[Rfam]
RNA sequence: ACCUGCCACAGGUGUGCGCUCCGACGCACCCCGGGGCUGAGACAGCAUUCGGUGUCACGGGAAGAACAUGGCACUUCAGGGCGUU
Numbered sequence: 001a002c003c004u005g006c007c008a009c010a011g012g013u014g015u016g017c018g019c020u021c022c023g024a025c026g027c028a029c030c031c032c033g034g035g036g037c038u039g040a041g042a043c044a045g046c047a048u049u050c051g052g053u054g055u056c057a058c059g060g061g062a063a064g065a066a067c068a069u070g071g072c073a074c075u076u077c078a079g080g081g082c083g084u085u
Stems, first nucleotide, its partner, number of pairs: 005037003009033001011031001014029005052074006059067001
Source information
The record is an 85-nucleotide sequence from Streptomyces sp. 150FB, which matches "nrdJ RNA" in Rfam. It is annotated as a small RNA. Taxonomically the source falls in Streptomyces (Bacteria, Bacillati, Actinomycetes, Streptomycetaceae). The match comes from Rfam's covariance-model search (53 bits). The base pairs follow the family's consensus structure, which is taken from published work.